Cyano-1 RNA: a 69-nucleotide sequence.
By type it is a small RNA.
RNA sequence: GUAUGUGCGAGGAGUGCAGAGCAUCUCUUCAGGGUCGAAACAAGGACAGACUCCUGAACGUGUUCCACU
Numbered sequence: 001g002u003a004u005g006u007g008c009g010a011g012g013a014g015u016g017c018a019g020a021g022c023a024u025c026u027c028u029u030c031a032g033g034g035u036c037g038a039a040a041c042a043a044g045g046a047c048a049g050a051c052u053c054c055u056g057a058a059c060g061u062g063u064u065c066c067a068c069u
Base pairs, nucleotide, nucleotide: 020064021063022062023061024060029057030056031055032054033053034051035050036049